The record is a 34-nucleotide RNA sequence, which matches "DUF805b RNA" in Rfam. It is annotated as a cis-regulatory element. The family's consensus secondary structure is taken from published work.

[Rfam]
RNA sequence: AUAGGGGAUGCCGAAAACCUUAUUAGAGUAGGCA
Numbered sequence: 001a002u003a004g005g006g007g008a009u010g011c012c013g014a015a016a017a018c019c020u021u022a023u024u025a026g027a028g029u030a031g032g033c034a
Stems, first nucleotide, its partner, number of pairs: 003020003010033003